Rfam assigns this 107-nucleotide RNA from Prunus persica to the family "MIR6274 microRNA precursor family".
[Rfam]
Nucleotides: 107
Stems, first nucleotide, its partner, number of pairs: 002106004012095009022085001024083023048059003
Number, partner (000 for none) and nucleotide at each position: 001000g002106g003105a004104a005103u006000a007000a008000u009000a010000u011000u012095u013094u014093u015092u016091g017090u018089u019088a020087u021000c022085u023000c024083u025082g026081g027080c028079c029078a030077a031076u032075a033074a034073u035072g036071c037070a038069a039068u040067g041066a042065c043064a044063u045062g046061u047000a048059g049058g050057a051000u052000a053000a054000c055000u056000u057050u058049u059048c060000c061046a062045c063044a064043u065042g066041u067040c068039a069038u070037u071036g072035u073034g074033u075032u076031a077030u078029u079028g080027g081026c082025c083024g084000a085022a086000a087020a088019u089018a090017g091016c092015a093014a094013a095012a096000c097000a098000g099000u100000g101000c102000u103005a104004u105003u106002c107000c
Rfam 15.1 lists 342 matches to the family in 8 species. Taxonomically the source falls in Prunus (Eukaryota, Gunneridae, Pentapetalae, Amygdaloideae).